Shown here is a 142-nucleotide RNA sequence from Ensete ventricosum, a member of the family "Small nucleolar RNA snoR136". The literature on the family includes a 2009 paper in Nucleic Acids Res by Chen and Wu, "Mining small RNA sequencing data: a new approach to identify small nucleolar RNAs in Arabidopsis".
[Rfam]
RNA sequence: UUUGCUUCAUCAUUGUAAUCAAGACCUUUAUAUUGUUUCUCUAUUUAGGGGUCAUUUUUAUGUUAAGCAAGAAAAAACUGCUGCCUCGCUAUCCGGUGCAAACUCUCUUUGUGUUGCAUUUGGACGUUGGUGAGCUACAUUA
Numbered sequence: 001u002u003u004g005c006u007u008c009a010u011c012a013u014u015g016u017a018a019u020c021a022a023g024a025c026c027u028u029u030a031u032a033u034u035g036u037u038u039c040u041c042u043a044u045u046u047a048g049g050g051g052u053c054a055u056u057u058u059u060a061u062g063u064u065a066a067g068c069a070a071g072a073a074a075a076a077a078c079u080g081c082u083g084c085c086u087c088g089c090u091a092u093c094c095g096g097u098g099c100a101a102a103c104u105c106u107c108u109u110u111g112u113g114u115u116g117c118a119u120u121u122g123g124a125c126g127u128u129g130g131u132g133a134g135c136u137a138c139a140u141u142a
Base pairs, nucleotide, nucleotide: 001072002071003069004068005067009063011062012061013060023053024052025051026050027049028048029047032046080135081134082133083131084130085129087126088125092124093123094122095121096120102114103113